A member of the RNA family "Small nucleolar RNA R38" from Otolemur garnettii, 83 nucleotides long. Rfam classes the family as a C/D-box small nucleolar RNA. Lineage of the source: Eukaryota > Craniata > Euteleostomi > Primates > Otolemur. The family has 19 seed sequences and 2,295 matches in Rfam 15.1. Gene Ontology terms of the family: RNA processing and nucleolus. snoR38 is a C/D box small nucleolar RNA conserved across yeast, human, Arabidopsis and rice.

RNA sequence: CUGAGUCUGUGAUGAUGUAGAGUUAUCCCUGUCUGAAGGCAAAUAAAGGCCUUCUGUGUGGAAUGUGGAUGUCUGAAACUCAG
Numbered sequence: 001c002u003g004a005g006u007c008u009g010u011g012a013u014g015a016u017g018u019a020g021a022g023u024u025a026u027c028c029c030u031g032u033c034u035g036a037a038g039g040c041a042a043a044u045a046a047a048g049g050c051c052u053u054c055u056g057u058g059u060g061g062a063a064u065g066u067g068g069a070u071g072u073c074u075g076a077a078a079c080u081c082a083g
Stems, first nucleotide, its partner, number of pairs: 001083006